[Rfam]
Nucleotides: 071
Stems, first nucleotide, its partner, number of pairs: 001071004
Number, partner (000 for none) and nucleotide at each position: 001071c002070u003069g004068c005000g006000u007000u008000g009000a010000c011000g012000a013000u014000u015000u016000a017000u018000c019000u020000u021000a022000c023000c024000u025000a026000c027000a028000a029000a030000g031000a032000c033000a034000a035000a036000u037000a038000c039000a040000a041000u042000g043000g044000u045000u046000a047000g048000a049000c050000g051000u052000u053000a054000c055000u056000c057000g058000u059000a060000c061000u062000g063000u064000c065000u066000g067000a068004g069003c070002a071001g

This 71-nucleotide RNA from Caenorhabditis japonica belongs to the Rfam family "Small nucleolar RNA sn2841".
It scores 86 bits against the family's covariance model.
The family has 2 seed sequences and 24 matches in Rfam 15.1.
Gene Ontology terms of the family: nucleolus and RNA processing.
Pairs were carried over by alignment from the consensus structure, which was predicted with WAR.